[Rfam]
RNA sequence: UUCCGAUAAUGGUAAACCUAUUGAAAGAUGGGGACACAAAACCACGGGCCUAAGGUAGUUUACUACUACGGUAGCCGGGUAACCGAA
Numbered sequence: 001u002u003c004c005g006a007u008a009a010u011g012g013u014a015a016a017c018c019u020a021u022u023g024a025a026a027g028a029u030g031g032g033g034a035c036a037c038a039a040a041a042c043c044a045c046g047g048g049c050c051u052a053a054g055g056u057a058g059u060u061u062a063c064u065a066c067u068a069c070g071g072u073a074g075c076c077g078g079g080u081a082a083c084c085g086a087a
Stems, first nucleotide, its partner, number of pairs: 012037002017032006041080003045077003048072003055066004

c-di-GMP-I riboswitch aptamer: an 87-nucleotide sequence from Iocasia frigidifontis.